RNA sequence: AAUUGCAUGUGAUGCAAUGUUGAAAAACAUUGGGAAUCUCUCUGAAUAAGGAUGAUGGACAACUUUUUUACUGAUGCAAUG
Numbered sequence: 001a002a003u004u005g006c007a008u009g010u011g012a013u014g015c016a017a018u019g020u021u022g023a024a025a026a027a028c029a030u031u032g033g034g035a036a037u038c039u040c041u042c043u044g045a046a047u048a049a050g051g052a053u054g055a056u057g058g059a060c061a062a063c064u065u066u067u068u069u070a071c072u073g074a075u076g077c078a079a080u081g
Stems, first nucleotide, its partner, number of pairs: 002080006

Source information: Small nucleolar RNA SNORD79: an 81-nucleotide RNA sequence from Gadus morhua. Its family is annotated with RNA processing and nucleolus in the Gene Ontology. About the family: snoRNA U79 or Z22 is found in intron 7 of the gas5 gene in humans and is also present in mice. Rfam classes the family as a C/D-box small nucleolar RNA. For this family Rfam cites "Purified box C/D snoRNPs are able to reproduce site-specific 2'-O-methylation of target RNA in vitro" (Galardi et al., Mol Cell Biol, 2002). A search with the family's covariance model found it, with a score of 58 bits. The base pairs follow the family's consensus structure, which was predicted with PFOLD. The family is grouped with related families in Rfam's "SNORD74 clan".